[Rfam]
Overview
Human acetyl-coA cholesterol acyltransferase mRNA: a 142-nucleotide sequence from Sciurus carolinensis. By type it is a cis-regulatory element. A search with the family's covariance model found it, with a score of 57 bits. Rfam 15.1 lists 107 matches to the family in 83 species. The organism belongs to Sciurus, within Eukaryota.
RNA sequence: CCGCUGGGCUGGCGACGUUGCGGGCCCUGGCCCCGGGACGGCUUUCCCUGCCGACCUUCCCAUCGCCGUGCAGUGACAGCUGCCCAGCCCGGCCCUCUUUGCCAAAGUCCCGCAGCCCGGCUGGGGCCCAGACAAAACAAAG
Dot-bracket structure: ............(...)...............(..((..(((..((.((((((.(.........).)).)))).))..))).))..).............(((...(.((.(....).)).)..)))...............